[Rfam]
RNA sequence: UGUACAAUAAGGCCUUCAUGGGUGGUGGCUCACACCCCUUUGCACGUUUUUUGGGAAAGGGGGUGAUGCCGAUGACAGUAUUCGAAACACUUUUUUUGAUGAUUUCCUUCGGAACAUUAAUCAUAGCCAUACUGUCAAACCAGAAAAAAUAACCACCCAUAGGCCUGGCAAGCAUAAUGGGUAGUUAGUUUUUCAAAAACCUGUAAUGUGAGCCGCCCCCUUGAAGGGCUGUUGUGCGUGACCGUUAGUGUAUUUGCACUAGCG
Numbered sequence: 001u002g003u004a005c006a007a008u009a010a011g012g013c014c015u016u017c018a019u020g021g022g023u024g025g026u027g028g029c030u031c032a033c034a035c036c037c038c039u040u041u042g043c044a045c046g047u048u049u050u051u052u053g054g055g056a057a058a059g060g061g062g063g064u065g066a067u068g069c070c071g072a073u074g075a076c077a078g079u080a081u082u083c084g085a086a087a088c089a090c091u092u093u094u095u096u097u098g099a100u101g102a103u104u105u106c107c108u109u110c111g112g113a114a115c116a117u118u119a120a121u122c123a124u125a126g127c128c129a130u131a132c133u134g135u136c137a138a139a140c141c142a143g144a145a146a147a148a149a150u151a152a153c154c155a156c157c158c159a160u161a162g163g164c165c166u167g168g169c170a171a172g173c174a175u176a177a178u179g180g181g182u183a184g185u186u187a188g189u190u191u192u193u194c195a196a197a198a199a200c201c202u203g204u205a206a207u208g209u210g211a212g213c214c215g216c217c218c219c220c221u222u223g224a225a226g227g228g229c230u231g232u233u234g235u236g237c238g239u240g241a242c243c244g245u246u247a248g249u250g251u252a253u254u255u256g257c258a259c260u261a262g263c264g
Stems, first nucleotide, its partner, number of pairs: 001238005007232001009230001011214003015210001017163001018160005024153001026151001030066003035062007074136007088101002111128002215229004243264009